RNA sequence: AAGACCUUUAAGACAGUCCCGUGAGGCUGGGAAGGUGACGGAAAACGGCAGCAGGCACACUUUAAGCCUGUUUAAAUGUAGAAUUCCUCUACCCUCUCACCCAAACGGUGAGAGGGUUUUUAUU
Numbered sequence: 001a002a003g004a005c006c007u008u009u010a011a012g013a014c015a016g017u018c019c020c021g022u023g024a025g026g027c028u029g030g031g032a033a034g035g036u037g038a039c040g041g042a043a044a045a046c047g048g049c050a051g052c053a054g055g056c057a058c059a060c061u062u063u064a065a066g067c068c069u070g071u072u073u074a075a076a077u078g079u080a081g082a083a084u085u086c087c088u089c090u091a092c093c094c095u096c097u098c099a100c101c102c103a104a105a106c107g108g109u110g111a112g113a114g115g116g117u118u119u120u121u122a123u124u
Base pairs, nucleotide, nucleotide: 004036005035006034007033008032009031014029015028016027017026018025042073043072044071047068048067049066053062054061055060091117092116093115094114095113096112097111098110099109100108101107
The record is a 124-nucleotide RNA sequence from Mesobacillus foraminis, which matches "PyrR binding site" in Rfam. The family's consensus secondary structure is taken from published work. A search with the family's covariance model found it, with a score of 59 bits.